Shown here is a 72-nucleotide sequence from Salmonella enterica, a member of the family "Enterobacterial sRNA STnc370". It is one of the family's seed sequences. Pairs were carried over by alignment from the consensus structure, which was predicted with WAR. Lineage of the source: Bacteria > Enterobacterales > Salmonella > Salmonella enterica > Salmonella enterica subsp. enterica serovar Hadar.
[Rfam]
RNA sequence: AAUUAUUAGCGAAUCGACUAGCACUCUUUACGUUAUAAAAAAAACCUGCCCGAAAGCAGGUUUUUUUUAUUU
Numbered sequence: 001a002a003u004u005a006u007u008a009g010c011g012a013a014u015c016g017a018c019u020a021g022c023a024c025u026c027u028u029u030a031c032g033u034u035a036u037a038a039a040a041a042a043a044a045c046c047u048g049c050c051c052g053a054a055a056g057c058a059g060g061u062u063u064u065u066u067u068u069a070u071u072u
Stems, first nucleotide, its partner, number of pairs: 004023001006021004040065010